This 37-nucleotide RNA from Hominimerdicola alba belongs to the Rfam family "abiF RNA". It scores 44 bits against the family's covariance model. Rfam 15.1 lists 282 matches to the family in 274 species. The source organism's lineage runs through Bacteria, Bacillota, Clostridia, Hominimerdicola and Hominimerdicola alba. From the family's description: Actinobacteria, Bacteroidetes, Clostridia, Proteobacteria, one Clostridia phage.
RNA sequence: CCUAUCACGCCUCUCAACGAUGCGUACCACGAUAGGU
Numbered sequence: 001c002c003u004a005u006c007a008c009g010c011c012u013c014u015c016a017a018c019g020a021u022g023c024g025u026a027c028c029a030c031g032a033u034a035g036g037u
Base pairs, nucleotide, nucleotide: 001036002035003034004033005032006031008024009023010022